[Rfam]
The record is a 60-nucleotide RNA from Dipodomys ordii, which matches "Ma3 gene ribosomal frameshift signal" in Rfam.
RNA sequence: GGGAAACGGAAACCGGGCUUGAGAUAAGAGCCAACCCAAGCCCCAGGCCAAGUAGGCUCC
Numbered sequence: 001g002g003g004a005a006a007c008g009g010a011a012a013c014c015g016g017g018c019u020u021g022a023g024a025u026a027a028g029a030g031c032c033a034a035c036c037c038a039a040g041c042c043c044c045a046g047g048c049c050a051a052g053u054a055g056g057c058u059c060c
Stems, first nucleotide, its partner, number of pairs: 015043007023035001028059005
Description:
The match comes from Rfam's covariance-model search (66 bits). The base pairs follow the family's consensus structure, which is taken from published work. Rfam 15.1 lists 565 matches to the family in 155 species. On this family, see Wills et al., J Biol Chem 2006: "A functional -1 ribosomal frameshift signal in the human paraneoplastic Ma3 gene".